[Rfam]
RNA sequence: UUCCCCGUUUGAUGUUCAGCUUCAAGUUCUGUUGUGUCGAUAACGGUUCGCCAAAACCGUCGAUUGCUUCGUACCCAAUCAAUCUACCACAGAUCCUGAAAACGGAACUGAUAACGGGGUUCUCG
Numbered sequence: 001u002u003c004c005c006c007g008u009u010u011g012a013u014g015u016u017c018a019g020c021u022u023c024a025a026g027u028u029c030u031g032u033u034g035u036g037u038c039g040a041u042a043a044c045g046g047u048u049c050g051c052c053a054a055a056a057c058c059g060u061c062g063a064u065u066g067c068u069u070c071g072u073a074c075c076c077a078a079u080c081a082a083u084c085u086a087c088c089a090c091a092g093a094u095c096c097u098g099a100a101a102a103c104g105g106a107a108c109u110g111a112u113a114a115c116g117g118g119g120u121u122c123u124c125g
Base pairs, nucleotide, nucleotide: 004118005117006116007115008114009113014108015107016106017105019103021101025097026096027093028092031090032089034087035086036085044059045058046057047056048055060082062080063079064078065077066076

Description:
Shown here is a 125-nucleotide RNA from Photobacterium halotolerans, a member of the family "MtlS RNA". The organism belongs to Photobacterium, within Bacteria. Its family is annotated with mannitol transport in the Gene Ontology. Pairs were carried over by alignment from the consensus structure, which was predicted with WAR. The family's RNA type in Rfam is small RNA.